[Rfam]
RNA sequence: UACAAACCCCCUUUUACAACGGAUCGUCUGGCACGUACCUGCCAGUGAAAGGAAAUGAUU
Numbered sequence: 001u002a003c004a005a006a007c008c009c010c011c012u013u014u015u016a017c018a019a020c021g022g023a024u025c026g027u028c029u030g031g032c033a034c035g036u037a038c039c040u041g042c043c044a045g046u047g048a049a050a051g052g053a054a055a056u057g058a059u060u
Stems, first nucleotide, its partner, number of pairs: 010052007028045006
Rfam assigns this 60-nucleotide RNA sequence from Bifidobacterium simiarum to the family "msiK RNA". The family has 120 seed sequences and 1,374 matches in Rfam 15.1. The family's RNA type in Rfam is cis-regulatory element.